RNA: c-di-AMP riboswitch aptamer (ydaO/yuaA leader)
Organism: Streptomyces sp. ISL-63
RNA sequence: ACGCGUAAAGCGCCGUAGGCAGGAGCGGGGGACCCAGGUAGGCCGCCGGGUCCGUACAGCCCCUUCGAAGGGCAGUCCCUUCGAAGUCGGGACGUACGGGAACGGCUUGGGGUGAAGUCGUGCGCAAGGUCGCGCGACCGGGCAACUCAUCAGCCCGAACCCGACAGCUCACCUCGUAGGCGUCGGUGAGGAGAUCC
Numbered sequence: 001a002c003g004c005g006u007a008a009a010g011c012g013c014c015g016u017a018g019g020c021a022g023g024a025g026c027g028g029g030g031g032a033c034c035c036a037g038g039u040a041g042g043c044c045g046c047c048g049g050g051u052c053c054g055u056a057c058a059g060c061c062c063c064u065u066c067g068a069a070g071g072g073c074a075g076u077c078c079c080u081u082c083g084a085a086g087u088c089g090g091g092a093c094g095u096a097c098g099g100g101a102a103c104g105g106c107u108u109g110g111g112g113u114g115a116a117g118u119c120g121u122g123c124g125c126a127a128g129g130u131c132g133c134g135c136g137a138c139c140g141g142g143c144a145a146c147u148c149a150u151c152a153g154c155c156c157g158a159a160c161c162c163g164a165c166a167g168c169u170c171a172c173c174u175c176g177u178a179g180g181c182g183u184c185g186g187u188g189a190g191g192a193g194a195u196c197c
Base pairs, nucleotide, nucleotide: 011182012181013180014179025177026176027175028174029173030172035109036108037107038106039105110162111161112160118137119136120135121134122133123132140156141155142154143153